[Rfam]
RNA sequence: UUGCCACUGGAUGAAGUGAAAGGGUUGAGGCCCGUGCAACCGGGCUGAACCCAGGAAAGUCCCCGGGCCACCUUCUGCAGAGAUGCGGGCUUGGUAACAAGUAAAGCCCAUGGGCCGGUGAUCCUCGGCUGAGACGCGUGGGGAGCCUUCGUGGUCACUGCCCAUGGGUGAAAUUUGGCCGAUGCUACAGUUAUUCACUUGGCCCAAUCCAAUUGGGCUAACUGAACGGGGCUUAUACUCCAAUGGCU
Numbered sequence: 001u002u003g004c005c006a007c008u009g010g011a012u013g014a015a016g017u018g019a020a021a022g023g024g025u026u027g028a029g030g031c032c033c034g035u036g037c038a039a040c041c042g043g044g045c046u047g048a049a050c051c052c053a054g055g056a057a058a059g060u061c062c063c064c065g066g067g068c069c070a071c072c073u074u075c076u077g078c079a080g081a082g083a084u085g086c087g088g089g090c091u092u093g094g095u096a097a098c099a100a101g102u103a104a105a106g107c108c109c110a111u112g113g114g115c116c117g118g119u120g121a122u123c124c125u126c127g128g129c130u131g132a133g134a135c136g137c138g139u140g141g142g143g144a145g146c147c148u149u150c151g152u153g154g155u156c157a158c159u160g161c162c163c164a165u166g167g168g169u170g171a172a173a174u175u176u177g178g179c180c181g182a183u184g185c186u187a188c189a190g191u192u193a194u195u196c197a198c199u200u201g202g203c204c205c206a207a208u209c210c211a212a213u214u215g216g217g218c219u220a221a222c223u224g225a226a227c228g229g230g231g232c233u234u235a236u237a238c239u240c241c242a243a244u245g246g247c248u
Base pairs, nucleotide, nucleotide: 003247004246005245006244008242009241010240011239014200015199016198017197018196019195022052023051024050025049057234058233059232061231062230063229064228076087077086078085079084089102090101091100092099093098105169107167110165111164112163113162114161115160117159118158126154128152129151136146137145139143202218203217204216205215206214207213
Shown here is a 248-nucleotide RNA sequence from Salvia splendens, a member of the family "RNase MRP". Rfam classes the family as a ribozyme. From the family's description: RNase MRP is an enzymatically active ribonucleoprotein with two distinct roles in eukaryotes. In mitochondria it plays a direct role in the initiation of mitochondrial DNA replication. In the nucleus it is involved in precursor rRNA processing, where it cleaves the internal transcribed spacer 1 between 18S and 5.8S rRNAs. Taxonomically the source falls in core Calosphace (Eukaryota, Viridiplantae, Gunneridae, Lamiales). On this family, see Rosenblad et al., Nucleic Acids Res 2006: "Inventory and analysis of the protein subunits of the ribonucleases P and MRP provides further evidence of homology between the yeast and human enzymes".